A member of the RNA family "c-di-GMP-I riboswitch aptamer" from Cellulomonas cellasea, 75 nucleotides long. NCBI's taxonomy places the organism under Bacteria, Bacillati, Micrococcales, Cellulomonas, Cellulomonas cellasea. From the family's description: GEMM was predicted in a large-scale screen for bacterial structured RNA regulatory elements. Genes associated with GEMM are involved in a diverse array of functions, including chemotaxis regulation, signal transduction, secretion and chitin.
RNA sequence: UCCACGAAAAGGCAAACCUGCUGCGAGGCAGGGACGCAAAGCCAUGGGGCCCCCGAGGUCCGCCAGGCUGCCGAA
Number, nucleotide and partner (000 for none) at each position: 001u000002c000003c000004a000005c000006g000007a000008a000009a000010a000011g000012g037013c036014a000015a000016a000017c032018c031019u030020g029021c028022u027023g000024c000025g000026a000027g022028g021029c020030a019031g018032g017033g000034a000035c000036g013037c012038a000039a000040a069041g068042c067043c066044a000045u065046g064047g063048g060049g059050c058051c000052c000053c000054c000055g000056a000057g000058g050059u049060c048061c000062g000063c047064c046065a045066g043067g042068c041069u040070g000071c000072c000073g000074a000075a000